[Rfam]
RNA sequence: AUCCGCACGCAGGGGAGUCCCGCCCAAGGGACUGAGAGGCAGAAAUGUGCGUAGCACAGGUGACGCGACCCUUUGAACCUGACCCAGUUGAUACUGGCGUAGGAAGCUAAAAGGGAUCGCCA
Number, nucleotide and partner (000 for none) at each position: 001a000002u000003c000004c000005g000006c000007a000008c000009g107010c106011a072012g071013g070014g069015g000016a000017g032018u031019c030020c029021c028022g000023c000024c000025c000026a000027a000028g021029g020030g019031a018032c017033u000034g000035a000036g000037a000038g000039g066040c000041a000042g000043a000044a000045a000046u000047g000048u000049g000050c000051g000052u000053a000054g000055c000056a000057c000058a000059g000060g000061u000062g000063a000064c000065g000066c039067g000068a000069c014070c013071c012072u011073u000074u000075g000076a000077a000078c103079c102080u101081g100082a000083c000084c097085c096086a095087g094088u000089u000090g000091a000092u000093a000094c087095u086096g085097g084098c000099g000100u081101a080102g079103g078104a000105a000106g010107c009108u000109a000110a000111a000112a000113g000114g000115g000116a000117u000118c000119g000120c000121c000122a000
Rfam assigns this 122-nucleotide RNA from Tritonibacter aquimaris to the family "TPP riboswitch aptamer (THI element)". Pairs were carried over by alignment from the consensus structure, which is taken from published work. Vitamin B(1) in its active form thiamin pyrophosphate (TPP) is an essential coenzyme that is synthesised by coupling of pyrimidine and thiazole moieties in bacteria.